Shown here is a 130-nucleotide RNA from Tetrahymena malaccensis, a member of the family "Tetrahymena snoRNA TtnuHACA18".
[Rfam]
RNA sequence: UCCUAGUAUCUCCCUCUAAUUCAUUCAUGUCUUAGCGGGUCGUAAAGGUUGCUAAAUAAAUUUGAAUUCUUUUUUUAAAUAAUUACUUUACACUAAAUUUGUAUGGUAAAUAUUUAAGAAUUCUACAAUU
Numbered sequence: 001u002c003c004u005a006g007u008a009u010c011u012c013c014c015u016c017u018a019a020u021u022c023a024u025u026c027a028u029g030u031c032u033u034a035g036c037g038g039g040u041c042g043u044a045a046a047g048g049u050u051g052c053u054a055a056a057u058a059a060a061u062u063u064g065a066a067u068u069c070u071u072u073u074u075u076u077a078a079a080u081a082a083u084u085a086c087u088u089u090a091c092a093c094u095a096a097a098u099u100u101g102u103a104u105g106g107u108a109a110a111u112a113u114u115u116a117a118g119a120a121u122u123c124u125a126c127a128a129u130u
Stems, first nucleotide, its partner, number of pairs: 002048003007044003012039003016035004022029002072120005080112002083109004089103004
The literature on the family includes a 2012 paper in Nucleic Acids Res by Andersen and Nielsen, "Experimental identification and analysis of macronuclear non-coding RNAs from the ciliate Tetrahymena thermophila".